The family of this 173-nucleotide sequence from Pseudobacteroides cellulosolvens is "Lysine riboswitch aptamer". Taxonomically the source falls in Pseudobacteroides cellulosolvens (Bacteria, Bacillota, Clostridia, Pseudobacteroides). A search with the family's covariance model found it, with a score of 122 bits. The family's consensus secondary structure is taken from published work.
RNA sequence: AUGUACAGUAGAGGUGCAUUUUUUAUUAGUAAACCUACGGAGAUCUGAGGGGAUCUAUGAUGUGGGUUAAAAGGAAAAAAUGCCGAAGGAUAUGACUCCCUUGAUUUAUAUCCUGGUUAUACAGUAAAUAACUGUAUAACUGUCAUCAGUAAUGAUGGAGCGCUAUCUGUCUU
Numbered sequence: 001a002u003g004u005a006c007a008g009u010a011g012a013g014g015u016g017c018a019u020u021u022u023u024u025a026u027u028a029g030u031a032a033a034c035c036u037a038c039g040g041a042g043a044u045c046u047g048a049g050g051g052g053a054u055c056u057a058u059g060a061u062g063u064g065g066g067u068u069a070a071a072a073g074g075a076a077a078a079a080a081u082g083c084c085g086a087a088g089g090a091u092a093u094g095a096c097u098c099c100c101u102u103g104a105u106u107u108a109u110a111u112c113c114u115g116g117u118u119a120u121a122c123a124g125u126a127a128a129u130a131a132c133u134g135u136a137u138a139a140c141u142g143u144c145a146u147c148a149g150u151a152a153u154g155a156u157g158g159a160g161c162g163c164u165a166u167c168u169g170u171c172u173u
Stems, first nucleotide, its partner, number of pairs: 008166004016083009032068008087114009097104002115141011143158006